[Rfam]
RNA sequence: UGGUUAAAUUACACUCAACGAUUUAAUUUUUUUUUUUGAAUAUUUUAUCGUUAUUUAUUUUUUAACCUAAAUUAAGUUAUCAUUCAAUUUUUUAUUUUCCAAAAAUAAAAAUUGUAUUGAUAUUUCUCUUCAUAUUCCCGGUAUUUUCAACGCCCAUAAUAGGGCAGCUUCUUGUUAAGUAGUGUUGAUUUUGCCGUAACAAAACGGCGAGGAGACAAAUAUAAAUGAAAUAAAAAAU
Numbered sequence: 001u002g003g004u005u006a007a008a009u010u011a012c013a014c015u016c017a018a019c020g021a022u023u024u025a026a027u028u029u030u031u032u033u034u035u036u037u038g039a040a041u042a043u044u045u046u047a048u049c050g051u052u053a054u055u056u057a058u059u060u061u062u063u064a065a066c067c068u069a070a071a072u073u074a075a076g077u078u079a080u081c082a083u084u085c086a087a088u089u090u091u092u093u094a095u096u097u098u099c100c101a102a103a104a105a106u107a108a109a110a111a112u113u114g115u116a117u118u119g120a121u122a123u124u125u126c127u128c129u130u131c132a133u134a135u136u137c138c139c140g141g142u143a144u145u146u147u148c149a150a151c152g153c154c155c156a157u158a159a160u161a162g163g164g165c166a167g168c169u170u171c172u173u174g175u176u177a178a179g180u181a182g183u184g185u186u187g188a189u190u191u192u193g194c195c196g197u198a199a200c201a202a203a204a205c206g207g208c209g210a211g212g213a214g215a216c217a218a219a220u221a222u223a224a225a226u227g228a229a230a231u232a233a234a235a236a237a238u
Stems, first nucleotide, its partner, number of pairs: 002067007017052006025044003029040003083229004089111009112224007124213005130207002140195004147188005152165004167183003171179002196205002
Shown here is a 238-nucleotide sequence from Plasmodium falciparum, a member of the family "Plasmodium RNA of unkown function RUF1". The base pairs follow the family's consensus structure, which was predicted with WAR. For this family Rfam cites "Structural RNAs of known and unknown function identified in malaria parasites by comparative genomics and RNA analysis" (Chakrabarti et al., RNA, 2007).